Rfam assigns this 84-nucleotide RNA from Hipposideros armiger to the family "mir-548 microRNA precursor family". It scores 94 bits against the family's covariance model.

RNA sequence: UAUUAGGUUGGUGCAAAAGUAAUUGCAGUUUGUGCCAUUAAAAAUGAUGGCACAAACUGCAGUUACCUUUGUACCAACCUAAUA
Dot-bracket structure: (((((((((((((((((.((((((((((((((((((((((....)))))))))))))))))))))).)))))))))))))))))
Overview
Gene Ontology terms of the family: RISC complex and miRNA-mediated post-transcriptional gene silencing. A reference for the family is Jima et al. (2010), "Deep sequencing of the small RNA transcriptome of normal and malignant human B cells identifies hundreds of novel microRNAs", Blood. The base pairs follow the family's consensus structure, which was predicted with WAR. The source organism's lineage runs through Eukaryota, Metazoa, Chordata, Amniota and Hipposideros.